[Rfam]
RNA sequence: GCGUACGAGGGAAGCGAUGAUCCGCCUGGUCCUCACCGACGCUUCGGCGCACGGAGAAACACGGUCGCCUAGACCAGGCGGGGAGCUAGUGGCGAGACCGGCCCGAUCCGC
Numbered sequence: 001g002c003g004u005a006c007g008a009g010g011g012a013a014g015c016g017a018u019g020a021u022c023c024g025c026c027u028g029g030u031c032c033u034c035a036c037c038g039a040c041g042c043u044u045c046g047g048c049g050c051a052c053g054g055a056g057a058a059a060c061a062c063g064g065u066c067g068c069c070u071a072g073a074c075c076a077g078g079c080g081g082g083g084a085g086c087u088a089g090u091g092g093c094g095a096g097a098c099c100g101g102c103c104c105g106a107u108c109c110g111c
Stems, first nucleotide, its partner, number of pairs: 001111003005107001009104003013087003022081008063099002065095005
Shown here is a 111-nucleotide RNA, a member of the family "c-di-GMP-II-GAG riboswitch aptamer". For this family Rfam cites "Bioinformatic analysis of riboswitch structures uncovers variant classes with altered ligand specificity" (Weinberg et al., Proc Natl Acad Sci U S A, 2017).